[Rfam]
The record is a 127-nucleotide RNA sequence from Chelonoidis abingdonii, which matches "U4atac minor spliceosomal RNA" in Rfam.
Rfam describes the family as follows. U4atac is an essential component of the minor U12-type spliceosome complex which is required for removal of the rarer class of eukaryotic introns (AT-AC, U12-type).
By type it is a spliceosomal small nuclear RNA.
On this family, see Lorkovic et al., RNA 2005: "Evolutionary conservation of minor U12-type spliceosome between plants and humans".
It scores 108 bits against the family's covariance model.
Its family is annotated with U4atac snRNP, mRNA 5'-splice site recognition and spliceosomal tri-snRNP complex assembly in the Gene Ontology.

Nucleotides: 127
Stems, first nucleotide, its partner, number of pairs: 006018004021060003026055007038046002082114005090105006
Number, partner (000 for none) and nucleotide at each position: 001000a002000c003000c004000a005000u006018c007017c008016u009015u010000c011000u012000c013000u014000u015009g016008g017007g018006g019000u020000u021060g022059c023058g024000c025000u026055a027054c028053u029052g030051u031050u032049c033000a034000a035000u036000g037000a038046a039045c040000g041000u042000a043000u044000a045039g046038u047000g048000a049032g050031a051030a052029c053028a054027g055026u056000a057000c058023u059022g060021c061000u062000a063000a064000c065000a066000c067000c068000g069000a070000c071000a072000c073000a074000a075000c076000a077000c078000g079000u080000a081000a082114g083113c084112g085111c086110c087000c088000g089000c090105u091104a092103a093102g094101g095100c096000u097000c098000c099000g100095g101094c102093u103092u104091u105090a106000a107000u108000g109000u110086g111085g112084u113083g114082c115000a116000a117000u118000u119000u120000u121000u122000g123000g124000a125000a126000c127000c